[Rfam]
Shown here is a 193-nucleotide RNA from Polycladomyces abyssicola, a member of the family "Lysine riboswitch aptamer". The match comes from Rfam's covariance-model search (123 bits).
RNA sequence: CGGUGAGAUAGAGGUUGCGGCUUUUAUGAGUAGGCCGGUCGAGCUUCAGAGACAGCGAGGAAGCCGGUUGAAAGGAAAAGCCGCCGAAGUCCGCGUCGCAUGCUCUGGGCACGCGGGCUGGGCCUGUUACCGAACAGGAACAGGACUGUCACGUCUGGUCGGUUGAAAGCGGACGUGGAGCGCUAUCUUGGCG
Numbered sequence: 001c002g003g004u005g006a007g008a009u010a011g012a013g014g015u016u017g018c019g020g021c022u023u024u025u026a027u028g029a030g031u032a033g034g035c036c037g038g039u040c041g042a043g044c045u046u047c048a049g050a051g052a053c054a055g056c057g058a059g060g061a062a063g064c065c066g067g068u069u070g071a072a073a074g075g076a077a078a079a080g081c082c083g084c085c086g087a088a089g090u091c092c093g094c095g096u097c098g099c100a101u102g103c104u105c106u107g108g109g110c111a112c113g114c115g116g117g118c119u120g121g122g123c124c125u126g127u128u129a130c131c132g133a134a135c136a137g138g139a140a141c142a143g144g145a146c147u148g149u150c151a152c153g154u155c156u157g158g159u160c161g162g163u164u165g166a167a168a169g170c171g172g173a174c175g176u177g178g179a180g181c182g183c184u185a186u187c188u189u190g191g192c193g
Base pairs, nucleotide, nucleotide: 006188007187008186009185010184011183017084018083019082020081021080022079023078024077025076033069034068035067036066037065038064039063088119089118090117091116092115093114094113095112096111099108120147121146123144124143125142126141127140128139130137149178150177151176152175153174154173155172156171157170